This 128-nucleotide sequence from Xenopus tropicalis belongs to the Rfam family "Small nucleolar RNA SNORA49". Gene Ontology terms of the family: RNA processing and nucleolus. Rfam classes the family as an H/ACA-box small nucleolar RNA. NCBI's taxonomy places the organism under Eukaryota, Eumetazoa, Vertebrata, Amphibia, Silurana. It scores 57 bits against the family's covariance model. From the family's description: The snoRNA ACA49 has no identified RNA target. Rfam 15.1 lists 722 matches to the family in 550 species.

RNA sequence: AUUCCUCAUCCUUACUCCAGGGUUAUCGUUGUUUGUACGUCCCCUGGCAUUAAUUGAGGAUAAAGUAAUUGCUCUCAUUCUGCUUUUGGAAACCUGUUUUCCUUAGGACUGAAUGAAGUGCAGACACU
Numbered sequence: 001a002u003u004c005c006u007c008a009u010c011c012u013u014a015c016u017c018c019a020g021g022g023u024u025a026u027c028g029u030u031g032u033u034u035g036u037a038c039g040u041c042c043c044c045u046g047g048c049a050u051u052a053a054u055u056g057a058g059g060a061u062a063a064a065g066u067a068a069u070u071g072c073u074c075u076c077a078u079u080c081u082g083c084u085u086u087u088g089g090a091a092a093c094c095u096g097u098u099u100u101c102c103u104u105a106g107g108a109c110u111g112a113a114u115g116a117a118g119u120g121c122a123g124a125c126a127c128u
Stems, first nucleotide, its partner, number of pairs: 003060006017047006025040001027039003070122003074118002083107003088103002091100001